[Rfam]
This 133-nucleotide sequence from Brevibacterium jeotgali belongs to the Rfam family "FMN riboswitch aptamer (RFN element)". About the family: The RFN element is a highly conserved domain that is found frequently in the 5'-untranslated regions of prokaryotic mRNAs that encode for flavin mononucleotide (FMN) biosynthesis and transport proteins.
Nucleotides: 133
Stems, first nucleotide, its partner, number of pairs: 004130007016028003030113002032103002034048004043101002052078002083099005105116003
Number, partner (000 for none) and nucleotide at each position: 001000c002000g003000c004130a005129u006128g007127u008126u009125c010124c011000g012000g013000g014000g015000a016028c017027g018026g019000c020000g021000a022000g023000a024000u025000u026018c027017c028016g029000u030113a031112c032103c033102g034048g035047c036046g037045g038000u039000g040000a041000u042000a043101g044100u045037c046036c047035g048034c049000g050000a051000c052078c053077c054000g055000c056000g057000u058000c059000c060000u061000c062000c063000c064000u065000c066000a067000c068000a069000g070000g071000g072000g073000g074000a075000c076000c077053g078052g079000u080000u081000g082000a083099c084098u085097c086096g087095g088000u089000g090000g091000a092000a093000u094000u095087c096086c097085g098084a099083g100044g101043c102033c103032g104000a105116c106115a107114g108000u109000a110000a111000a112031g113030u114107c115106u116105g117000g118000a119000u120000g121000g122000g123000a124010g125009g126008a127007a128006c129005a130004u131000c132000g133000u

NCBI's taxonomy places the organism under Bacteria, Bacillati, Actinomycetota, Brevibacteriaceae, Brevibacterium.